[Rfam]
Shown here is a 104-nucleotide RNA sequence from Ethanoligenens harbinense, a member of the family "SAM riboswitch aptamer (S box leader)".

RNA sequence: ACCUUAUCAAGAGAGGCUGAGGGAAAGGCCCUGUGAAGCCCGGCAACCUGCACAUGGAUGCAAGGUGCCAAUUCCUGCGGAGUGGAUAACCGUGCAGAUGAGGA
Numbered sequence: 001a002c003c004u005u006a007u008c009a010a011g012a013g014a015g016g017c018u019g020a021g022g023g024a025a026a027g028g029c030c031c032u033g034u035g036a037a038g039c040c041c042g043g044c045a046a047c048c049u050g051c052a053c054a055u056g057g058a059u060g061c062a063a064g065g066u067g068c069c070a071a072u073u074c075c076u077g078c079g080g081a082g083u084g085g086a087u088a089a090c091c092g093u094g095c096a097g098a099u100g101a102g103g104a
Stems, first nucleotide, its partner, number of pairs: 002103007013041001015040003021031003026076003042069004047065002049062004073096001079091002
Rfam's curators write: The SAM riboswitch is found upstream of a number of genes which code for proteins involved in methionine or cysteine biosynthesis in Gram-positive bacteria. The SAM riboswitch acts at the level of transcription termination control. The predicted structure consists of a complex stem-loop region followed by a single stem loop terminator region. An alternative and mutually exclusive form involves bases in the 3' segment of helix 1 with those in the 5' region of helix 5 to form a structure termed the anti-terminator form. This entry represents the conserved core of the complex structure involving helices 1-4.